Shown here is a 60-nucleotide sequence from Candidatus Nanopelagicus abundans, a member of the family "Actino-pnp RNA". The match comes from Rfam's covariance-model search (65 bits). Taxonomically the source falls in Candidatus Nanopelagicus (Bacteria, Bacillati, Actinomycetes, Candidatus Nanopelagicaceae). Rfam classes the family as a cis-regulatory element. The family's consensus secondary structure is taken from published work.
RNA sequence: UUUGGUCCUCGGUAGUGGUUUCCGGAAAACGUUUCCCGUGAACUUCGAUCGAAGAUCCAU
Numbered sequence: 001u002u003u004g005g006u007c008c009u010c011g012g013u014a015g016u017g018g019u020u021u022c023c024g025g026a027a028a029a030c031g032u033u034u035c036c037c038g039u040g041a042a043c044u045u046c047g048a049u050c051g052a053a054g055a056u057c058c059a060u
Base pairs, nucleotide, nucleotide: 002059004057005056006055007054009052010051011050012049013048017044018043019042020041021040023038024037025036027034028033